[Rfam]
RNA sequence: CUGCUGUUUCAGGGCGGGGUGGAAUUCCCCACUGGCGGUGAAUCGGUCAGACGGCCGGGCGCGGCGGCGCGUGUGCGCUGUGGCGUGCGGGGCAAGAUGCCUUCCGUCUGGGUGUGCGGCAAAGGUGUCACAUGCAAUGCCGAUGAGCCCGCGAACCCGUCAGGCAUUGGGUUGCCUGCGGGCCGAUCCGGUGAGAUCCCGGGGCCAACGGUUAGAGUCCGGAUGGAAGAGGCAGGUG
Number, nucleotide and partner (000 for none) at each position: 001c000002u000003g000004c235005u234006g233007u232008u231009u230010c229011a000012g000013g000014g000015c000016g000017g029018g028019g027020u000021g000022g000023a000024a000025u000026u000027c019028c018029c017030c000031a218032c217033u207034g206035g152036c151037g150038g149039u000040g000041a000042a000043u000044c000045g000046g000047u000048c000049a000050g000051a000052c000053g000054g000055c000056c000057g000058g000059g000060c000061g000062c000063g000064g000065c000066g000067g000068c000069g000070c000071g000072u000073g000074u000075g000076c000077g000078c000079u000080g000081u000082g000083g000084c000085g000086u000087g000088c000089g000090g000091g000092g000093c000094a000095a000096g000097a000098u000099g000100c000101c000102u000103u000104c000105c000106g000107u000108c000109u000110g000111g000112g000113u000114g000115u000116g000117c000118g000119g000120c000121a000122a000123a000124g000125g000126u000127g000128u000129c000130a000131c000132a000133u000134g000135c000136a000137a000138u000139g000140c000141c000142g000143a000144u000145g000146a000147g000148c000149c038150c037151g036152c035153g000154a000155a000156c182157c181158c180159g179160u178161c000162a000163g000164g000165c000166a000167u000168u000169g000170g000171g000172u000173u000174g000175c000176c000177u000178g160179c159180g158181g157182g156183c000184c000185g000186a000187u203188c202189c201190g200191g199192u000193g000194a000195g000196a000197u000198c000199c191200c190201g189202g188203g187204g000205c000206c034207a033208a000209c221210g220211g219212u000213u000214a000215g000216a000217g032218u031219c211220c210221g209222g000223a000224u000225g000226g000227a000228a000229g010230a009231g008232g007233c006234a005235g004236g000237u000238g000
Rfam assigns this 238-nucleotide RNA sequence from Collinsella sp. An307 to the family "FMN riboswitch aptamer (RFN element)". The source organism's lineage runs through Bacteria, Bacillati, Coriobacteriia, Coriobacteriales and Collinsella.